The record is a 35-nucleotide RNA from Flavilitoribacter nigricans, which matches "DUF805b RNA" in Rfam. It is annotated as a cis-regulatory element.
RNA sequence: ACGGAGCAUGCCGAAAAUCCAUAAAAGAGUAGGCU
Numbered sequence: 001a002c003g004g005a006g007c008a009u010g011c012c013g014a015a016a017a018u019c020c021a022u023a024a025a026a027g028a029g030u031a032g033g034c035u
Stems, first nucleotide, its partner, number of pairs: 003020003010034003

Clan: DUF805 clan.